[Rfam]
RNA sequence: AGCAGCAAAGAGAUUUAUACUCGUAUAAUAUUGGGAAAUAUGGUCCAAGAGUUUCUACCGAGCUACCGUAAAUAGCUUGACUACGAGGUAAGUGUUUAUAGAG
Dot-bracket structure: ...................((((((...(.((((.(.......))))).)........(((((((.......)))))))..))))))................